Overview
tRNA: a 71-nucleotide RNA from Luteibaculum oceani. By type it is a transfer RNA. About the family: Transfer RNA (tRNA) molecules are approximately 80 nucleotides in length. Their secondary structure includes four short double-helical elements and three loops (D, anti-codon, and T loops). Further hydrogen bonds mediate the characteristic L-shaped molecular structure. tRNAs have two regions of fundamental functional importance: the anti-codon, which is responsible for specific mRNA codon recognition, and the 3' end, to which the tRNAs corresponding amino acid is attached (by aminoacyl-tRNA synthetases). tRNAs cope with the degeneracy of the genetic code in two manners: having more than one tRNA (with a specific anti-codon) for a particular amino acid; and 'wobble' base-pairing, i.e. permitting non-standard base-pairing at the 3rd anti-codon position.
RNA sequence: GGUUUCGUGGCCGAGUGGCUAGGCAGAGGUCUGCAAAACCUUGUACGGCGGUUCGAAUCCGCCCGAAACCU
Numbered sequence: 001g002g003u004u005u006c007g008u009g010g011c012c013g014a015g016u017g018g019c020u021a022g023g024c025a026g027a028g029g030u031c032u033g034c035a036a037a038a039c040c041u042u043g044u045a046c047g048g049c050g051g052u053u054c055g056a057a058u059c060c061g062c063c064c065g066a067a068a069c070c071u
Stems, first nucleotide, its partner, number of pairs: 001070007010024003026042005047063005